Description
The record is a 71-nucleotide sequence from Acipenser ruthenus, which matches "mir-196 microRNA precursor family" in Rfam.

[Rfam]
RNA sequence: UGUGUGAUUUAGGUAGUUUCAUGUUGUUGGCUGUAAAGAUCACAGUAACCUGAAACUGCCUGGGUUACUCC
Numbered sequence: 001u002g003u004g005u006g007a008u009u010u011a012g013g014u015a016g017u018u019u020c021a022u023g024u025u026g027u028u029g030g031c032u033g034u035a036a037a038g039a040u041c042a043c044a045g046u047a048a049c050c051u052g053a054a055a056c057u058g059c060c061u062g063g064g065u066u067a068c069u070c071c
Base pairs, nucleotide, nucleotide: 004068005067006066007065008064009063010062011061012060013059014058015057016056017055018054019053023049024048025047026046027045028044029043